[Rfam]
The family of this 30-nucleotide RNA sequence is "L19-Flavobacteria ribosomal protein leader". It is annotated as a cis-regulatory leader. On this family, see Eckert and Weinberg, BMC Microbiol 2020: "Discovery of 20 novel ribosomal leader candidates in bacteria and archaea".
RNA sequence: UAACCUCUGACGAAAAUAUCGUGGACGUUG
Numbered sequence: 001u002a003a004c005c006u007c008u009g010a011c012g013a014a015a016a017u018a019u020c021g022u023g024g025a026c027g028u029u030g
Base pairs, nucleotide, nucleotide: 001030002029003028004027008025010022011021012020013019